[Rfam]
RNA sequence: CAUGACAUGAAAACACAUCCUCAUAUAAUCUUGGGAAUAUGGCCCAUAAGUCUCUACCCGAUGACCGUAAAUCAUCGGACUAUGCAGGAAAGUGGACAAUAAA
Number, nucleotide and partner (000 for none) at each position: 001c000002a000003u000004g000005a000006c000007a000008u000009g000010a000011a000012a000013a000014c000015a000016c000017a000018u089019c088020c087021u086022c084023a083024u082025a081026u000027a000028a000029u049030c000031u000032u046033g045034g044035g043036a000037a000038u000039a000040u000041g000042g000043c035044c034045c033046a032047u000048a000049a029050g000051u000052c000053u000054c000055u000056a000057c000058c078059c077060g076061a075062u074063g073064a072065c000066c000067g000068u000069a000070a000071a000072u064073c063074a062075u061076c060077g059078g058079a000080c000081u025082a024083u023084g022085c000086a021087g020088g019089a018090a000091a000092g000093u000094g000095g000096a000097c000098a000099a000100u000101a000102a000103a000